[Rfam]
This 113-nucleotide RNA sequence from Frankineae bacterium MT45 belongs to the Rfam family "SAM (S-adenosyl methionine) riboswitch aptamer". The family's consensus secondary structure is taken from published work. NCBI's taxonomy places the organism under Bacteria, Bacillati, Actinomycetota, Actinomycetes, Frankiales. Rfam's curators write: SAM-IV is a mRNA element that regulates gene expression via direct sensing of S-adenosylmethionine (SAM or AdoMet). SAM-IV riboswitches share conserved nucleotide positions with the previously described SAM-I riboswitches sequence analysis and molecular recognition experiments suggest that SAM-I and SAM-IV riboswitches share similar ligand binding sites, but have different scaffolds. Its family is annotated with S-adenosylmethionine metabolic process and regulation of gene expression in the Gene Ontology. The family has 40 seed sequences and 2,360 matches in Rfam 15.1.

RNA sequence: GGUCAUGAACGUCAGCGCACAGCCCCGGCUUGCUGACUGGCAACCCUCGCGUCGCGGUGGGGUGCCCCGGGUGACGACCAGGUCAAACAAUUCUGUUUCGACAAGUGCGACUG
Numbered sequence: 001g002g003u004c005a006u007g008a009a010c011g012u013c014a015g016c017g018c019a020c021a022g023c024c025c026c027g028g029c030u031u032g033c034u035g036a037c038u039g040g041c042a043a044c045c046c047u048c049g050c051g052u053c054g055c056g057g058u059g060g061g062g063u064g065c066c067c068c069g070g071g072u073g074a075c076g077a078c079c080a081g082g083u084c085a086a087a088c089a090a091u092u093c094u095g096u097u098u099c100g101a102c103a104a105g106u107g108c109g110a111c112u113g
Stems, first nucleotide, its partner, number of pairs: 001079004009038001011037006021030002039066003044062003048057001082102003086097004